[Rfam]
RNA sequence: AAAUAGAAAAGCCAAUUCUGCACAGAUGCAGAAACGGAAAGCCAUAGGGUCUAUGAUUUAGAUAGCCGGGUUGCCUCG
Number, nucleotide and partner (000 for none) at each position: 001a000002a000003a000004u000005a000006g000007a000008a000009a000010a000011g000012c037013c036014a000015a000016u000017u032018c031019u030020g029021c028022a027023c000024a000025g000026a000027u022028g021029c020030a019031g018032a017033a000034a000035c000036g013037g012038a000039a000040a072041g071042c070043c069044a000045u000046a000047g067048g066049g063050u062051c061052u000053a000054u000055g000056a000057u000058u000059u000060a000061g051062a050063u049064a000065g000066c048067c047068g000069g043070g042071u041072u040073g000074c000075c000076u000077c000078g000

The family of this 78-nucleotide sequence from Desulfobacter postgatei is "c-di-GMP-I riboswitch aptamer".
GEMM was predicted in a large-scale screen for bacterial structured RNA regulatory elements. Genes associated with GEMM are involved in a diverse array of functions, including chemotaxis regulation, signal transduction, secretion and chitin.
The source organism's lineage runs through Bacteria, Desulfobacteria, Desulfobacterales, Desulfobacteraceae and Desulfobacter postgatei.